About this RNA: mir-665 microRNA precursor family: a 65-nucleotide RNA from Lynx pardinus. The organism belongs to Lynx, within Eukaryota. Rfam links the family to the GO terms RISC complex and miRNA-mediated post-transcriptional gene silencing.
[Rfam]
RNA sequence: GAGGGGUCUUAGCCUCUACCCAGGGCUCUUUCAUGACCAGGAGGCUGAGGCCCCUCAUGGGCGAC
Numbered sequence: 001g002a003g004g005g006g007u008c009u010u011a012g013c014c015u016c017u018a019c020c021c022a023g024g025g026c027u028c029u030u031u032c033a034u035g036a037c038c039a040g041g042a043g044g045c046u047g048a049g050g051c052c053c054c055u056c057a058u059g060g061g062c063g064a065c
Stems, first nucleotide, its partner, number of pairs: 001056010012045004016040002021035002024032002